This 64-nucleotide RNA sequence from Astyanax mexicanus belongs to the Rfam family "mir-7552 microRNA precursor family". The family has 4 seed sequences and 220 matches in Rfam 15.1. The organism belongs to Astyanax, within Eukaryota. It scores 62 bits against the family's covariance model.
RNA sequence: UUACAAUUAAAGGAUAUUUCUUUGAAGUUGAUUCAAAAGCAGAAAUGUCCCUUAAUUGUUGGGU
Numbered sequence: 001u002u003a004c005a006a007u008u009a010a011a012g013g014a015u016a017u018u019u020c021u022u023u024g025a026a027g028u029u030g031a032u033u034c035a036a037a038a039g040c041a042g043a044a045a046u047g048u049c050c051c052u053u054a055a056u057u058g059u060u061g062g063g064u
Stems, first nucleotide, its partner, number of pairs: 003059008012050010